[Rfam]
RNA: Small nucleolar RNA SNORA11
RNA sequence: GAGGUGUGCUCAGAGCAGGUGGCUUCUCUGUUUACAACACACCCAACGGGAAUUUAGGGUUAUUGGGACAAGGGGCACAAAACUUGAGACUUCUCUCUGAGCAAACAUCCUACACAU
Numbered sequence: 001g002a003g004g005u006g007u008g009c010u011c012a013g014a015g016c017a018g019g020u021g022g023c024u025u026c027u028c029u030g031u032u033u034a035c036a037a038c039a040c041a042c043c044c045a046a047c048g049g050g051a052a053u054u055u056a057g058g059g060u061u062a063u064u065g066g067g068a069c070a071a072g073g074g075g076c077a078c079a080a081a082a083c084u085u086g087a088g089a090c091u092u093c094u095c096u097c098u099g100a101g102c103a104a105a106c107a108u109c110c111u112a113c114a115c116a117u
Stems, first nucleotide, its partner, number of pairs: 003043006013033007021025001057110004064103002069099002072092003076088001078086003